SAM riboswitch aptamer (S box leader): a 106-nucleotide RNA sequence from Halobacillus salinus. About the family: The SAM riboswitch is found upstream of a number of genes which code for proteins involved in methionine or cysteine biosynthesis in Gram-positive bacteria. The source organism's lineage runs through Bacteria, Bacillati, Bacillota, Caryophanales and Halobacillus. Rfam links the family to the GO term regulation of gene expression. Pairs were carried over by alignment from the consensus structure, which is taken from published work.
RNA sequence: UCCUUAUAGAGAGUCGGGGAAGGAAUCUGGUCUUAUGAUCCCGCAGCAACCACACUGUUUGGUGGAGGUGCUCAUUCCAGCAGACGAUAAGUCUGAAAGAUAAGGA
Dot-bracket structure: (((((((.....(.((((...(((..[[[[)))......)))))((((.((.(((......)))..))))))...(]]]](((((.....)))))..).)))))))
Numbered sequence: 001u002c003c004u005u006a007u008a009g010a011g012a013g014u015c016g017g018g019g020a021a022g023g024a025a026u027c028u029g030g031u032c033u034u035a036u037g038a039u040c041c042c043g044c045a046g047c048a049a050c051c052a053c054a055c056u057g058u059u060u061g062g063u064g065g066a067g068g069u070g071c072u073c074a075u076u077c078c079a080g081c082a083g084a085c086g087a088u089a090a091g092u093c094u095g096a097a098a099g100a101u102a103a104g105g106a
Stems, first nucleotide, its partner, number of pairs: 001106007013044001015043004022033003027080004045072004050068002053064003076098001081095005